RNA sequence: GGAUUUGCAACGCCGAGUCCGCGACCAGCGCGGAACCGGGGAACCAGCGCGAGCGUCGUCCAGGCCGAUCCGCCUGUGGCGCCUCGCAGGGGUGAAUCGACGCCUCCUUGCCACGUGAGGAAUGUCGUAGGGCGACUUCCACGCCCGAAUCCGUCAGCUAACCCGGUAGGCGGCAUGGAAGGAGCA
Numbered sequence: 001g002g003a004u005u006u007g008c009a010a011c012g013c014c015g016a017g018u019c020c021g022c023g024a025c026c027a028g029c030g031c032g033g034a035a036c037c038g039g040g041g042a043a044c045c046a047g048c049g050c051g052a053g054c055g056u057c058g059u060c061c062a063g064g065c066c067g068a069u070c071c072g073c074c075u076g077u078g079g080c081g082c083c084u085c086g087c088a089g090g091g092g093u094g095a096a097u098c099g100a101c102g103c104c105u106c107c108u109u110g111c112c113a114c115g116u117g118a119g120g121a122a123u124g125u126c127g128u129a130g131g132g133c134g135a136c137u138u139c140c141a142c143g144c145c146c147g148a149a150u151c152c153g154u155c156a157g158c159u160a161a162c163c164c165g166g167u168a169g170g171c172g173g174c175a176u177g178g179a180a181g182g183a184g185c186a
Stems, first nucleotide, its partner, number of pairs: 011172004018034006035167006045089001090152003098127004130146004
Shown here is a 186-nucleotide RNA sequence from Actinomadura sp. KC345, a member of the family "c-di-AMP riboswitch aptamer (ydaO/yuaA leader)". NCBI's taxonomy places the organism under Bacteria, Actinomycetes, Streptosporangiales, Thermomonosporaceae, Actinomadura. A search with the family's covariance model found it, with a score of 79 bits.